[Rfam]
This 49-nucleotide RNA sequence from Szabonella alba belongs to the Rfam family "SAM/SAH riboswitch aptamer". The family's consensus secondary structure is taken from published work. Lineage of the source: Bacteria > Pseudomonadati > Alphaproteobacteria > Rhodobacterales > Szabonella. On this family, see Weickhmann et al., Nucleic Acids Res 2019: "The structure of the SAM/SAH-binding riboswitch".
RNA sequence: GUACCGUCACAACGGCUUCCUGGCGUGACGGGUGUUUUUCAACGGAGCA
Numbered sequence: 001g002u003a004c005c006g007u008c009a010c011a012a013c014g015g016c017u018u019c020c021u022g023g024c025g026u027g028a029c030g031g032g033u034g035u036u037u038u039u040c041a042a043c044g045g046a047g048c049a
Base pairs, nucleotide, nucleotide: 004031005030006029007028008027009026010025013022014021015048016047017046019045020044